RNA sequence: GAAGUUCCUGCGGGGUCGAACUGGGAACACACGAGACGACGAGCUCCUCUCCUCGAUUCCACAGCUCGUGUGUUCUCAGGUCGCCCCCGCUGGAGCCUC
Numbered sequence: 001g002a003a004g005u006u007c008c009u010g011c012g013g014g015g016u017c018g019a020a021c022u023g024g025g026a027a028c029a030c031a032c033g034a035g036a037c038g039a040c041g042a043g044c045u046c047c048u049c050u051c052c053u054c055g056a057u058u059c060c061a062c063a064g065c066u067c068g069u070g071u072g073u074u075c076u077c078a079g080g081u082c083g084c085c086c087c088c089g090c091u092g093g094a095g096c097c098u099c
Base pairs, nucleotide, nucleotide: 007093008092011089012088013087014086017083018082019081023077024076025075026074027073028072029071030070031069032068
The family of this 99-nucleotide sequence from Hordeum vulgare is "MIR398 microRNA precursor family". Rfam links the family to the GO terms RISC complex and miRNA-mediated post-transcriptional gene silencing. NCBI's taxonomy places the organism under Eukaryota, Tracheophyta, Liliopsida, Poaceae, Hordeum vulgare. A reference for the family is Zeng et al. (2010), "Conservation and divergence of microRNAs and their functions in Euphorbiaceous plants", Nucleic Acids Res.